[Rfam]
RNA sequence: CUCUGGAGAGAUCCCGGCAAGAGCGGGGCGCCGAAGGGAUAACGAUCUCAGGCGAAGGGACAGAG
Numbered sequence: 001c002u003c004u005g006g007a008g009a010g011a012u013c014c015c016g017g018c019a020a021g022a023g024c025g026g027g028g029c030g031c032c033g034a035a036g037g038g039a040u041a042a043c044g045a046u047c048u049c050a051g052g053c054g055a056a057g058g059g060a061c062a063g064a065g
Base pairs, nucleotide, nucleotide: 001065002064003063004062005061012028013027014026015025030053031052032051033049034048037047038046
The record is a 65-nucleotide RNA sequence from Neotabrizicola shimadae, which matches "Glycine riboswitch aptamer" in Rfam.